A member of the RNA family "ALIL pseudoknot" from Nitrosomonas sp. Nm84, 117 nucleotides long. The base pairs follow the family's consensus structure, which is taken from published work. For this family Rfam cites "Apical loop-internal loop RNA pseudoknots: a new type of stimulator of -1 translational frameshifting in bacteria" (Mazauric et al., J Biol Chem, 2008).
[Rfam]
RNA sequence: GACCUAUUUUGCGCAGGCGGAGCUCGACCGCCGGCCGAAAUGACAGUGGCGUUUGUCGAUCAACACAAGGAACAGUACGGGGUCGAGCCGGUCUGCAGACAAAUACAGAUUGCCCCG
Numbered sequence: 001g002a003c004c005u006a007u008u009u010u011g012c013g014c015a016g017g018c019g020g021a022g023c024u025c026g027a028c029c030g031c032c033g034g035c036c037g038a039a040a041u042g043a044c045a046g047u048g049g050c051g052u053u054u055g056u057c058g059a060u061c062a063a064c065a066c067a068a069g070g071a072a073c074a075g076u077a078c079g080g081g082g083u084c085g086a087g088c089c090g091g092u093c094u095g096c097a098g099a100c101a102a103a104u105a106c107a108g109a110u111u112g113c114c115c116c117g
Stems, first nucleotide, its partner, number of pairs: 016032005078117005089112002092109004097104001